This 132-nucleotide sequence from Ancylomarina salipaludis belongs to the Rfam family "Molybdenum/Tungsten riboswitch aptamer (Moco RNA motif)".

RNA sequence: UAUCAUGAAGACUCCGAGUUAUUAAUGGCUAAGCCUUUGGUACGUUUUAAUAACCGAUGGGUAAAGUAGGAAACUUAAUUACCUCCCGCAGGACUAGAUCCUAAAUUGGAAAGGAGAGAUAUGUGAUUUGGC
Numbered sequence: 001u002a003u004c005a006u007g008a009a010g011a012c013u014c015c016g017a018g019u020u021a022u023u024a025a026u027g028g029c030u031a032a033g034c035c036u037u038u039g040g041u042a043c044g045u046u047u048u049a050a051u052a053a054c055c056g057a058u059g060g061g062u063a064a065a066g067u068a069g070g071a072a073a074c075u076u077a078a079u080u081a082c083c084u085c086c087c088g089c090a091g092g093a094c095u096a097g098a099u100c101c102u103a104a105a106u107u108g109g110a111a112a113g114g115a116g117a118g119a120u121a122u123g124u125g126a127u128u129u130g131g132c
Stems, first nucleotide, its partner, number of pairs: 003126002006123001012116004018054008027046003033041003059084006068075002085109002
Taxonomically the source falls in Ancylomarina (Bacteria, Bacteroidota, Marinilabiliales, Marinifilaceae).